[Rfam]
RNA sequence: AGAUAUUCCAAGCCAAAGUCCAUUGGACGCGGAGAAACCAUGUCUUUGGGGUGAAGCCGCAGCGCAUGCGGCGGCGGGGCUCCUUGGCCCUAACCCGUCAGCUAACUCCGCAGGCAAUUAAAGGGAGGAAUU
Numbered sequence: 001a002g003a004u005a006u007u008c009c010a011a012g013c014c015a016a017a018g019u020c021c022a023u024u025g026g027a028c029g030c031g032g033a034g035a036a037a038c039c040a041u042g043u044c045u046u047u048g049g050g051g052u053g054a055a056g057c058c059g060c061a062g063c064g065c066a067u068g069c070g071g072c073g074g075c076g077g078g079g080c081u082c083c084u085u086g087g088c089c090c091u092a093a094c095c096c097g098u099c100a101g102c103u104a105a106c107u108c109c110g111c112a113g114g115c116a117a118u119u120a121a122a123g124g125g126a127g128g129a130a131u132u
Stems, first nucleotide, its partner, number of pairs: 012115003018028003029111006039048002049096003057074004077090004